Description: The record is a 181-nucleotide sequence from Clostridium tagluense, which matches "Lysine riboswitch aptamer" in Rfam. The literature on the family includes a 2003 paper in Cell by Mandal et al., "Riboswitches Control Fundamental Biochemical Pathways in Bacillus subtilis and Other Bacteria". Pairs were carried over by alignment from the consensus structure, which is taken from published work.

RNA sequence: CACAUAAAUAGAGGUGCAAAAAAAGAGGUAGUUUUUGAAUGCUAAGGAUAUGGACAUCCAAUAUCAAAAACGAAGGAUUUAUUUGCCGAAAGAGUAUUUUGGUUCUUCAAGAUAUUCUUGGGGAUAGAGAGUAGUAUUUCUAUCACUGCCAUAAAGAUUUUUAUGGAGAGCUAUUUAUGUA
Numbered sequence: 001c002a003c004a005u006a007a008a009u010a011g012a013g014g015u016g017c018a019a020a021a022a023a024a025g026a027g028g029u030a031g032u033u034u035u036u037g038a039a040u041g042c043u044a045a046g047g048a049u050a051u052g053g054a055c056a057u058c059c060a061a062u063a064u065c066a067a068a069a070a071c072g073a074a075g076g077a078u079u080u081a082u083u084u085g086c087c088g089a090a091a092g093a094g095u096a097u098u099u100u101g102g103u104u105c106u107u108c109a110a111g112a113u114a115u116u117c118u119u120g121g122g123g124a125u126a127g128a129g130a131g132u133a134g135u136a137u138u139u140c141u142a143u144c145a146c147u148g149c150c151a152u153a154a155a156g157a158u159u160u161u162u163a164u165g166g167a168g169a170g171c172u173a174u175u176u177a178u179g180u181a
Stems, first nucleotide, its partner, number of pairs: 006176006016086005022080003031071008090119012120147002123144008149166007